[Rfam]
RNA sequence: UACCGAGCGUCGAGAGGCGACGGGAUGAGCGUGCAGGAGUCAGCUGAAGCCGUAGUAAGUGACGAAUAACCCCGUCCAAGGGGC
Numbered sequence: 001u002a003c004c005g006a007g008c009g010u011c012g013a014g015a016g017g018c019g020a021c022g023g024g025a026u027g028a029g030c031g032u033g034c035a036g037g038a039g040u041c042a043g044c045u046g047a048a049g050c051c052g053u054a055g056u057a058a059g060u061g062a063c064g065a066a067u068a069a070c071c072c073c074g075u076c077c078a079a080g081g082g083g084c
Stems, first nucleotide, its partner, number of pairs: 001027002004023001008019004040047002049084003059077001061076004
A member of the RNA family "Group II catalytic intron D1-D4-1" from Pseudomonas coronafaciens, 84 nucleotides long.
Rfam's curators put it in the seed alignment.
The base pairs follow the family's consensus structure.
About the family: Group II introns are found in rRNA, tRNA and mRNA of organelles in fungi, plants and protists, and also in mRNA in bacteria.